The record is a 90-nucleotide sequence from Clostridium puniceum, which matches "c-di-GMP-I riboswitch aptamer" in Rfam. The source organism's lineage runs through Bacteria, Bacillati, Eubacteriales, Clostridiaceae and Clostridium.
[Rfam]
RNA sequence: UAAUGUUAAUAGCACACUUAUUGAAAGAUAAGGUCGCAAAGCUAUGAGUCUAAGGAAAAUCUUAUUUUCUAUGAUUGUCAGGUUGCCAGA
Numbered sequence: 001u002a003a004u005g006u007u008a009a010u011a012g013c014a015c016a017c018u019u020a021u022u023g024a025a026a027g028a029u030a031a032g033g034u035c036g037c038a039a040a041g042c043u044a045u046g047a048g049u050c051u052a053a054g055g056a057a058a059a060u061c062u063u064a065u066u067u068u069c070u071a072u073g074a075u076u077g078u079c080a081g082g083u084u085g086c087c088a089g090a
Base pairs, nucleotide, nucleotide: 012037013036017032018031019030020029021028022027040084041083042082043081045080046079047078048075049074050073055069056068057067058066059065060064